The record is a 91-nucleotide sequence from Canis lupus, which matches "mir-8799 microRNA precursor family" in Rfam. It scores 58 bits against the family's covariance model.

[Rfam]
RNA sequence: GGGGGGAGGGCCGGAUCCUGGGGUGUGUCCCGGCACCCUGUGCUGCGGGGCCUGCAGUGUUGGAUUCGGGCUCCCCACCUCGCAGCCCCCU
Number, nucleotide and partner (000 for none) at each position: 001g091002g090003g089004g088005g087006g086007a000008g000009g000010g083011c082012c000013g079014g078015a000016u000017c000018c000019u000020g074021g073022g072023g000024u070025g000026u068027g067028u064029c063030c062031c059032g058033g000034c000035a000036c054037c000038c000039u000040g052041u000042g051043c050044u049045g000046c000047g000048g000049g044050g043051c042052c040053u000054g036055c000056a000057g000058u032059g031060u000061u000062g030063g029064a028065u000066u000067c027068g026069g000070g024071c000072u022073c021074c020075c000076c000077a000078c014079c013080u000081c000082g011083c010084a000085g000086c006087c005088c004089c003090c002091u001